RNA sequence: AAGCAAGAUUUAGACUACAAUAUAGCAGUUAACUGCUGUGUUGUCUUCCCCCUGCUCAAAAAAAGUUGUUUCUUAACUAUACCUGUCUGCUAUUCUCCUGUAGCAGCCUGGGAUGCUUGGUCUCACACAU
Numbered sequence: 001a002a003g004c005a006a007g008a009u010u011u012a013g014a015c016u017a018c019a020a021u022a023u024a025g026c027a028g029u030u031a032a033c034u035g036c037u038g039u040g041u042u043g044u045c046u047u048c049c050c051c052c053u054g055c056u057c058a059a060a061a062a063a064a065g066u067u068g069u070u071u072c073u074u075a076a077c078u079a080u081a082c083c084u085g086u087c088u089g090c091u092a093u094u095c096u097c098c099u100g101u102a103g104c105a106g107c108c109u110g111g112g113a114u115g116c117u118u119g120g121u122c123u124c125a126c127a128c129a130u
Base pairs, nucleotide, nucleotide: 003055004054005053007051017044018043019042020041021040022039023038024037025036026035082111083110085108087106088105089104090103